[Rfam]
This 105-nucleotide RNA sequence from Prunus persica belongs to the Rfam family "MIR6274 microRNA precursor family".

RNA sequence: GGAUAGCACUAUUUUGCUAUCCCCGACCAAUAACACAAUGACAUGUGAAAAAGUUAUCCUACAUGUCAUUGCGUUAUUAGCCGGGGAUAGCAAAAAGUGCUAUCC
Number, nucleotide and partner (000 for none) at each position: 001g000002g104003a103004u102005a101006g000007c000008a000009c000010u000011a000012u095013u094014u093015u092016g091017c090018u089019a088020u087021c000022c085023c084024c083025g082026a000027c080028c000029a078030a077031u076032a075033a074034c073035a000036c071037a070038a069039u068040g067041a066042c065043a064044u063045g062046u061047g060048a000049a000050a057051a000052a000053g000054u000055u000056a000057u050058c000059c000060u047061a046062c045063a044064u043065g042066u041067c040068a039069u038070u037071g036072c000073g034074u033075u032076a031077u030078u029079a000080g027081c000082c025083g024084g023085g022086g000087a020088u019089a018090g017091c016092a015093a014094a013095a012096a000097g000098u000099g000100c000101u005102a004103u003104c002105c000